The family of this 64-nucleotide RNA sequence from Anaerobacillus alkalidiazotrophicus is "Fluoride riboswitch aptamer (crcB RNA motif)". Rfam 15.1 lists 2,293 matches to the family in 1,982 species. Lineage of the source: Bacteria > Bacillota > Caryophanales > Bacillaceae > Anaerobacillus. It scores 64 bits against the family's covariance model.

Nucleotides: 064
Base pairs, nucleotide, nucleotide: 010025011024012023013022016055017054018053019052020051021050033045034044035043036042
Number, partner (000 for none) and nucleotide at each position: 001000a002000a003000c004000g005000a006000c007000a008000u009000a010025g011024g012023c013022g014000a015000u016055g017054g018053a019052g020051u021050u022013c023012g024011c025010c026000a027000u028000u029000a030000a031000c032000c033045g034044c035043u036042u037000a038000a039000u040000a041000a042036a043035a044034g045033c046000u047000a048000a049000u050021g051020a052019c053018u054017c055016c056000u057000g058000c059000u060000a061000g062000c063000a064000u